Rfam assigns this 109-nucleotide RNA from Synechococcus sp. CC9311 to the family "TPP riboswitch aptamer (THI element)". The match comes from Rfam's covariance-model search (72 bits).
RNA sequence: AAAGACCACUAGGGGUGCCCCGGCUUUCAUUGCGAUCGCUGGGGCUGAGAUCACACCCUCUGAACUUGAUCCGGGUCAUGCCGGCGCAGGGAAGUGAACGAUGUGAUCU
Numbered sequence: 001a002a003a004g005a006c007c008a009c010u011a012g013g014g015g016u017g018c019c020c021c022g023g024c025u026u027u028c029a030u031u032g033c034g035a036u037c038g039c040u041g042g043g044g045c046u047g048a049g050a051u052c053a054c055a056c057c058c059u060c061u062g063a064a065c066u067u068g069a070u071c072c073g074g075g076u077c078a079u080g081c082c083g084g085c086g087c088a089g090g091g092a093a094g095u096g097a098a099c100g101a102u103g104u105g106a107u108c109u
Stems, first nucleotide, its partner, number of pairs: 007096004011059004016053001017045008065090004071084004